[Rfam]
U1 spliceosomal RNA: a 164-nucleotide sequence from Molossus molossus. A reference for the family is Katsamba et al. (2001), "Two functionally distinct steps mediate high affinity binding of U1A protein to U1 hairpin II RNA", J Biol Chem. The organism belongs to Molossus, within Eukaryota. By type it is a spliceosomal small nuclear RNA. Its Rfam clan is "U1 clan". Gene Ontology terms of the family: U1 snRNP, pre-mRNA 5'-splice site binding and mRNA 5'-splice site recognition.
RNA sequence: AUACUUACCUAGCACGGGAGAUACCAUGAUCAUGAAAGUGGUUUUCCCAGGGCGAGGCUUAUCCAUUGCACUCCGGAUGUGCUGACCCCUGAAAUUUCCCCAAAUGUGGGAAACUCGACUGCACAAUUUGUGGUAGUGGGGGACUGUGUUCACGCUCUCCCCUA
Numbered sequence: 001a002u003a004c005u006u007a008c009c010u011a012g013c014a015c016g017g018g019a020g021a022u023a024c025c026a027u028g029a030u031c032a033u034g035a036a037a038g039u040g041g042u043u044u045u046c047c048c049a050g051g052g053c054g055a056g057g058c059u060u061a062u063c064c065a066u067u068g069c070a071c072u073c074c075g076g077a078u079g080u081g082c083u084g085a086c087c088c089c090u091g092a093a094a095u096u097u098c099c100c101c102a103a104a105u106g107u108g109g110g111a112a113a114c115u116c117g118a119c120u121g122c123a124c125a126a127u128u129u130g131u132g133g134u135a136g137u138g139g140g141g142g143a144c145u146g147u148g149u150u151c152a153c154g155c156u157c158u159c160c161c162c163u164a
Base pairs, nucleotide, nucleotide: 012122013121014120016048017047018046019045020044021043023042024041025040026039027038049090050089051088052087054086056083057082058081060079061078062077063076064075094115095113096112097111099109100108138163139162140161141160142159143158146155147154148153